[Rfam]
RNA sequence: GACCCCCUUUUCACUUUGCCAGUUGGACUUAUGUCAUUACUGGUCAUUCAGGUGGGCAAAGAAAAUGCAAUUUAAAAACCCAUGCAAACUAGUUGUUGGUCUAGUGUGCUGUUGAAACAAAU
Number, nucleotide and partner (000 for none) at each position: 001g000002a000003c000004c000005c000006c000007c000008u000009u000010u000011u000012c000013a000014c000015u000016u000017u000018g000019c000020c000021a000022g000023u000024u000025g000026g000027a000028c000029u000030u000031a000032u058033g057034u056035c055036a000037u000038u000039a000040c051041u050042g049043g048044u000045c000046a000047u000048u043049c042050a041051g040052g000053u000054g000055g035056g034057c033058a032059a000060a000061g000062a000063a000064a000065a000066u000067g000068c000069a000070a000071u116072u115073u114074a000075a000076a000077a000078a000079c000080c000081c104082a102083u000084g100085c099086a000087a097088a096089c095090u000091a000092g000093u000094u000095g089096u088097u087098g000099g085100u084101c000102u082103a000104g081105u000106g000107u000108g000109c000110u000111g000112u000113u000114g073115a072116a071117a000118c000119a000120a000121a000122u000
RNA: Small nucleolar RNA SNORA27